Rfam assigns this 92-nucleotide RNA from Rhynchospora breviuscula to the family "Plastid-rpl20 3UTR RNA".
Nucleotides: 092
Base pairs, nucleotide, nucleotide: 007030009028010027011026012025013024014023015022077087078086079085
Number, partner (000 for none) and nucleotide at each position: 001000a002000a003000g004000g005000a006000u007030u008000c009028c010027c011026c012025g013024g014023a015022g016000a017000a018000u019000g020000a021000a022015c023014u024013c025012c026011g027010g028009g029000a030007a031000g032000a033000u034000a035000u036000a037000a038000a039000a040000g041000g042000a043000a044000a045000a046000u047000c048000c049000a050000u051000u052000c053000a054000g055000a056000u057000a058000a059000a060000g061000a062000u063000u064000a065000a066000u067000a068000g069000u070000a071000g072000c073000a074000a075000u076000u077087a078086a079085g080000a081000g082000c083000a084000u085079c086078u087077u088000u089000u090000a091000a092000u

From the family's description: Plastid rpl20 is a non-coding RNA (ncRNA) recognised in plastids. It was found in the three prime untranslated region (3UTR) of rpl20 gene, it presence in the 3UTR region sugest a role in transcript maduration. The base pairs follow the family's consensus structure, which was predicted with LocARNA. A search with the family's covariance model found it, with a score of 56 bits. A reference for the family is Richter et al. (2023), "Retrograde signaling in plants: A critical review focusing on the GUN pathway and beyond", Plant Commun. The family's RNA type in Rfam is cis-regulatory element.